[Rfam]
The family of this 103-nucleotide sequence from Leucobacter denitrificans is "Glycine riboswitch aptamer". The match comes from Rfam's covariance-model search (40 bits).

RNA sequence: CAACUCUGAAAAGCAGCGGGCAAUCCCGCUCACCGACGGUGCAAGGUCUGGUGUCGCAGCGACACUUCGCCGAAUCUCUCAGGUCACGUACAGAGCGGGGAGG
Dot-bracket structure: (..(((((......((((........)))).(((((..(.(...((.......................))....).))).)))......)))))..).....
Overview
The base pairs follow the family's consensus structure.